[Rfam]
RNA: Small Cajal body-specific RNA 7
RNA sequence: UGGAAGUGAUGAAAUAGAGAUAAUUGGAUGUUUCUUUGAAUGGAGUGUGUGUGAUAAAUAGCAUUUAAAUGGGGUGGGUGGGAGGGGGUGCGUGUGUGUCUGUGCGUGCGUGUAUAGAAGAGGCUUUAACUGGGGGCACUGAUAAUGAAGUGCUGAUUCCGGAGUGCAUCUGAGGCAUGUUGUUAAAUUCUGGGGUCCUGUUUUCCGACAUUGCCGAUGAUUAAAGCCCAAAACAAGCUCACCAAGACAGGCCUAGGCAUCUUAAAUCUCUAACAGGUUCAUGAAUAGAAGUGAUCCUGUGAUCUGAUCCAA
Numbered sequence: 001u002g003g004a005a006g007u008g009a010u011g012a013a014a015u016a017g018a019g020a021u022a023a024u025u026g027g028a029u030g031u032u033u034c035u036u037u038g039a040a041u042g043g044a045g046u047g048u049g050u051g052u053g054a055u056a057a058a059u060a061g062c063a064u065u066u067a068a069a070u071g072g073g074g075u076g077g078g079u080g081g082g083a084g085g086g087g088g089u090g091c092g093u094g095u096g097u098g099u100c101u102g103u104g105c106g107u108g109c110g111u112g113u114a115u116a117g118a119a120g121a122g123g124c125u126u127u128a129a130c131u132g133g134g135g136g137c138a139c140u141g142a143u144a145a146u147g148a149a150g151u152g153c154u155g156a157u158u159c160c161g162g163a164g165u166g167c168a169u170c171u172g173a174g175g176c177a178u179g180u181u182g183u184u185a186a187a188u189u190c191u192g193g194g195g196u197c198c199u200g201u202u203u204u205c206c207g208a209c210a211u212u213g214c215c216g217a218u219g220a221u222u223a224a225a226g227c228c229c230a231a232a233a234c235a236a237g238c239u240c241a242c243c244a245a246g247a248c249a250g251g252c253c254u255a256g257g258c259a260u261c262u263u264a265a266a267u268c269u270c271u272a273a274c275a276g277g278u279u280c281a282u283g284a285a286u287a288g289a290a291g292u293g294a295u296c297c298u299g300u301g302a303u304c305u306g307a308u309c310c311a312a
Stems, first nucleotide, its partner, number of pairs: 001311004178210005185203001187196003
Dot-bracket structure: ((((.............................................................................................................................................................................(((((..(.(((....)))......)..))))).................................................................................................)))).